Rfam assigns this 135-nucleotide RNA from Caulobacter sp. Root655 to the family "Caulobacter sRNA CC3664".
RNA sequence: GUCGGCUGAUCGGAACCCCUGCGGUUCAGGAUCCUGAACAGCCCCCCCAGCCCCCUUUAUCGUGGGCCGGUCGGCCGACAGAGCCCUCUAAGAAUAUCCCUGAGACCCCGCGUGGCGCCCCUCUCCACGCGGGGU
Numbered sequence: 001g002u003c004g005g006c007u008g009a010u011c012g013g014a015a016c017c018c019c020u021g022c023g024g025u026u027c028a029g030g031a032u033c034c035u036g037a038a039c040a041g042c043c044c045c046c047c048c049a050g051c052c053c054c055c056u057u058u059a060u061c062g063u064g065g066g067c068c069g070g071u072c073g074g075c076c077g078a079c080a081g082a083g084c085c086c087u088c089u090a091a092g093a094a095u096a097u098c099c100c101u102g103a104g105a106c107c108c109c110g111c112g113u114g115g116c117g118c119c120c121c122u123c124u125c126c127a128c129g130c131g132g133g134g135u
Stems, first nucleotide, its partner, number of pairs: 001079013018066008029055002034050003087104001089102002092099001105135011
On this family, see Landt et al., Mol Microbiol 2008: "Small non-coding RNAs in Caulobacter crescentus".